[Rfam]
RNA sequence: UUUUGCAUUUGGGUUAUUCAUUAAAAUGCCAUUACCCACCGCAUGCAAAAGGUGAGUUUUACCUAGGCCCGUGCCGCCAUA
Numbered sequence: 001u002u003u004u005g006c007a008u009u010u011g012g013g014u015u016a017u018u019c020a021u022u023a024a025a026a027u028g029c030c031a032u033u034a035c036c037c038a039c040c041g042c043a044u045g046c047a048a049a050a051g052g053u054g055a056g057u058u059u060u061a062c063c064u065a066g067g068c069c070c071g072u073g074c075c076g077c078c079a080u081a
Stems, first nucleotide, its partner, number of pairs: 004043003009038001011036002016032002021028001051078004056074002061072002